Notes: A member of the RNA family "c-di-AMP riboswitch aptamer (ydaO/yuaA leader)" from Nocardioides daedukensis, 173 nucleotides long. The organism belongs to Nocardioides, within Bacteria.

[Rfam]
RNA sequence: UCCGACAAUGCGCCAUUGACCUCAAUCAGAUCGAGGGGCAGGAGUGGGGGACCCACAGGUUCCACGCGCAAGCGAGCCCAGCUCGCAGCGCUCGGGGUGAAGUCACCAUCUGGUGGCAGAGCACUUUCCAGCUCCAACCCGACAGCUCACCUCACAGGCGUGGGAAAGGAACA
Dot-bracket structure: (((.....................................)))((((((....(.......................................)(((.....((((......))))..((((........))))...))).........))))))..................

Background: Its family is annotated with regulation of gene expression and cyclic-di-AMP binding in the Gene Ontology. The match comes from Rfam's covariance-model search (58 bits). The base pairs follow the family's consensus structure.